[Rfam]
RNA sequence: ACUCGUUGUUGCGAUAGUAAUCCUGCUUAGUACGAGAGGAACCGCAGGUUCAGACAUUUGGUUCAUGUGCUUGGCCGAUCGGCCAAUGGUGCGAAGCUACCAUCUGAGGGAUUAUGACUGAACGCCUCUAAGUCAGAAUCCCGCCUAGUCAAGGCAACGAUAAAUUUGCUCCCCGGUGUCGGGAGGCACUUCUAUGCAACUUUUGUUACAGCUAAUGCCCCAUUAGAUGGCCUUGCCAAGCUGCUGAAAGGUAGCUUGGUUGCCAAAGCCGGACUACACGGUGCAACGUCGGGGCGCAAAAUCACUUGCAGACGACUUGAUUACUGGUCAAGGUGUUGUAUCCAGUAGAGCAGCCUCCAUACUGCGAUCUGUUAAGACUUAUCCUUUGAUUGGACGAUUUGU
Numbered sequence: 001a002c003u004c005g006u007u008g009u010u011g012c013g014a015u016a017g018u019a020a021u022c023c024u025g026c027u028u029a030g031u032a033c034g035a036g037a038g039g040a041a042c043c044g045c046a047g048g049u050u051c052a053g054a055c056a057u058u059u060g061g062u063u064c065a066u067g068u069g070c071u072u073g074g075c076c077g078a079u080c081g082g083c084c085a086a087u088g089g090u091g092c093g094a095a096g097c098u099a100c101c102a103u104c105u106g107a108g109g110g111a112u113u114a115u116g117a118c119u120g121a122a123c124g125c126c127u128c129u130a131a132g133u134c135a136g137a138a139u140c141c142c143g144c145c146u147a148g149u150c151a152a153g154g155c156a157a158c159g160a161u162a163a164a165u166u167u168g169c170u171c172c173c174c175g176g177u178g179u180c181g182g183g184a185g186g187c188a189c190u191u192c193u194a195u196g197c198a199a200c201u202u203u204u205g206u207u208a209c210a211g212c213u214a215a216u217g218c219c220c221c222a223u224u225a226g227a228u229g230g231c232c233u234u235g236c237c238a239a240g241c242u243g244c245u246g247a248a249a250g251g252u253a254g255c256u257u258g259g260u261u262g263c264c265a266a267a268g269c270c271g272g273a274c275u276a277c278a279c280g281g282u283g284c285a286a287c288g289u290c291g292g293g294g295c296g297c298a299a300a301a302u303c304a305c306u307u308g309c310a311g312a313c314g315a316c317u318u319g320a321u322u323a324c325u326g327g328u329c330a331a332g333g334u335g336u337u338g339u340a341u342c343c344a345g346u347a348g349a350g351c352a353g354c355c356u357c358c359a360u361a362c363u364g365c366g367a368u369c370u371g372u373u374a375a376g377a378c379u380u381a382u383c384c385u386u387u388g389a390u391u392g393g394a395c396g397a398u399u400u401g402u
Base pairs, nucleotide, nucleotide: 005161006160007159008158009157010156011155012154015147016146017145020050022048023047024046025045026044051106052105053104054103059099060098061097066093067092068091069090070089071086072085073084074083075082076081108142109141110140115135116134117133118132119131171294172293173292174291175290176289299400300399301398302397303396305319308316325392326391327390328389329388330387331385332384333383335378336377343371344370345369347368350365351364352363353362